Description
Y RNA: a 96-nucleotide RNA sequence from Aotus nancymaae. The literature on the family includes a 1995 paper in RNA by Van Horn et al., "Caenorhabditis elegans embryos contain only one major species of Ro RNP". It is annotated as a non-coding RNA gene.
RNA sequence: GGCUGGUCUGCUGGUAGUAGGCUAUCAGAACUUAUUAAUAUUAGUGUCACUAAAGUUGAUAUACAAUCCCCCACUGCUAAAUUUGACUGGCUUAAA
Numbered sequence: 001g002g003c004u005g006g007u008c009u010g011c012u013g014g015u016a017g018u019a020g021g022c023u024a025u026c027a028g029a030a031c032u033u034a035u036u037a038a039u040a041u042u043a044g045u046g047u048c049a050c051u052a053a054a055g056u057u058g059a060u061a062u063a064c065a066a067u068c069c070c071c072c073a074c075u076g077c078u079a080a081a082u083u084u085g086a087c088u089g090g091c092u093u094a095a096a
Stems, first nucleotide, its partner, number of pairs: 001092008010084001015079001016075003020071002033061003037057002

The organism belongs to Aotus, within Eukaryota. The family has 104 seed sequences and 26,986 matches in Rfam 15.1.